[Rfam]
Rfam assigns this 75-nucleotide sequence to the family "RAGATH-18 RNA". Pairs were carried over by alignment from the consensus structure, which is taken from published work. It is annotated as a small RNA.
RNA sequence: CCUAUGGAGAGUACAAGAACUUGUGAGUAGUAUUUGCAGAAUUUCGAUAUGAAAGCAUACUCGAUGAAAUAGGAA
Numbered sequence: 001c002c003u004a005u006g007g008a009g010a011g012u013a014c015a016a017g018a019a020c021u022u023g024u025g026a027g028u029a030g031u032a033u034u035u036g037c038a039g040a041a042u043u044u045c046g047a048u049a050u051g052a053a054a055g056c057a058u059a060c061u062c063g064a065u066g067a068a069a070u071a072g073g074a075a
Base pairs, nucleotide, nucleotide: 001073002072003071004070005069009062010061011060012059013058022057023056024055030050031049032048035046036045
Dot-bracket structure: (((((...(((((........(((.....(((..((........)).)))....))))))))......)))))..